[Rfam]
RNA sequence: CAAAUCCUGUCUGUUUAAGGUCUAACCAACCAGCAGUAGCGAGUCUUGCGUGGUAAUCAGUAAUGAUUGUUGCGAAGCGUAGACAGCAAGCAAGUAGGGUUGCAAUGCGAUUGAGCCUCGAAAAGUUGAAUUUCAGAGGGCUGACGUCUUAACUGGUUCGGAAAGCAACAUCGGCUAACUCGCUAUGGUGAGAGUUCGUCGGCACUGCGGGGUUCAAGGGGC
Numbered sequence: 001c002a003a004a005u006c007c008u009g010u011c012u013g014u015u016u017a018a019g020g021u022c023u024a025a026c027c028a029a030c031c032a033g034c035a036g037u038a039g040c041g042a043g044u045c046u047u048g049c050g051u052g053g054u055a056a057u058c059a060g061u062a063a064u065g066a067u068u069g070u071u072g073c074g075a076a077g078c079g080u081a082g083a084c085a086g087c088a089a090g091c092a093a094g095u096a097g098g099g100u101u102g103c104a105a106u107g108c109g110a111u112u113g114a115g116c117c118u119c120g121a122a123a124a125g126u127u128g129a130a131u132u133u134c135a136g137a138g139g140g141c142u143g144a145c146g147u148c149u150u151a152a153c154u155g156g157u158u159c160g161g162a163a164a165g166c167a168a169c170a171u172c173g174g175c176u177a178a179c180u181c182g183c184u185a186u187g188g189u190g191a192g193a194g195u196u197c198g199u200c201g202g203c204a205c206u207g208c209g210g211g212g213u214u215c216a217a218g219g220g221g222c
Stems, first nucleotide, its partner, number of pairs: 012035003019031003023191001025189002037089001039087002043084004047079002049074011112216001113214001115213006134207003138203001140166003145160002171202005177196005